[Rfam]
RNA: Group II catalytic intron D1-D4-3
Organism: Aequorivita ciconiae
RNA sequence: AAUCCCGAUAGCUAUCGGAAGAAAGAAGCCUAAAACAAAAGUCGGUACCAACGAACACAAACUGCAUACUAAGGCUUGCCCGGAGGGUUAUGUGGCAAUAGACACAGACGCCCGAAAGUCGUCCAUAAUUCAGGGUAGUAAAUGCAGUGGUAUUGACUGGAAGAUAAUGGA
Numbered sequence: 001a002a003u004c005c006c007g008a009u010a011g012c013u014a015u016c017g018g019a020a021g022a023a024a025g026a027a028g029c030c031u032a033a034a035a036c037a038a039a040a041g042u043c044g045g046u047a048c049c050a051a052c053g054a055a056c057a058c059a060a061a062c063u064g065c066a067u068a069c070u071a072a073g074g075c076u077u078g079c080c081c082g083g084a085g086g087g088u089u090a091u092g093u094g095g096c097a098a099u100a101g102a103c104a105c106a107g108a109c110g111c112c113c114g115a116a117a118g119u120c121g122u123c124c125a126u127a128a129u130u131c132a133g134g135g136u137a138g139u140a141a142a143u144g145c146a147g148u149g150g151u152a153u154u155g156a157c158u159g160g161a162a163g164a165u166a167a168u169g170g171a
Stems, first nucleotide, its partner, number of pairs: 002015002006011001029170002036163001040158011062147006074139003079134002082131003085113004091106004